[Rfam]
RNA sequence: GUCAAUAACCCACCACUUACCUAACGGUUGAAGUGGGGGCUUGUUAAAAGCCCUUAUUGACUACCCUCAGUCUCUUGCAGACUACGUUGGAAAGGUCAUGACACCCUCGGAUGCCCCUCAAGUCCGUUGCACUGUCGCUUAUGGUUAAAAGCUCUGAUGGGUAGGAGCGGUGCUGUAAGCUGAACAAGCCCUUCCAACCUUGGGUAUGAGGCACUAAC
Numbered sequence: 001g002u003c004a005a006u007a008a009c010c011c012a013c014c015a016c017u018u019a020c021c022u023a024a025c026g027g028u029u030g031a032a033g034u035g036g037g038g039g040c041u042u043g044u045u046a047a048a049a050g051c052c053c054u055u056a057u058u059g060a061c062u063a064c065c066c067u068c069a070g071u072c073u074c075u076u077g078c079a080g081a082c083u084a085c086g087u088u089g090g091a092a093a094g095g096u097c098a099u100g101a102c103a104c105c106c107u108c109g110g111a112u113g114c115c116c117c118u119c120a121a122g123u124c125c126g127u128u129g130c131a132c133u134g135u136c137g138c139u140u141a142u143g144g145u146u147a148a149a150a151g152c153u154c155u156g157a158u159g160g161g162u163a164g165g166a167g168c169g170g171u172g173c174u175g176u177a178a179g180c181u182g183a184a185c186a187a188g189c190c191c192u193u194c195c196a197a198c199c200u201u202g203g204g205u206a207u208g209a210g211g212c213a214c215u216a217a218c
Stems, first nucleotide, its partner, number of pairs: 001061008010039002013036002020027002040050003064204003069083005086198007094190003101135002105129001108126005113214001116211005137180009149171001151168005157162001
This 218-nucleotide RNA from Bacillus sp. 7884-1 belongs to the Rfam family "HNH endonuclease-associated RNA and ORF (HEARO) RNA". The match comes from Rfam's covariance-model search (135 bits). By type it is a non-coding RNA gene. On this family, see Weinberg et al., Nature 2009: "Exceptional structured noncoding RNAs revealed by bacterial metagenome analysis". Taxonomically the source falls in Bacillus (Bacteria, Bacillati, Bacillota, Bacillaceae).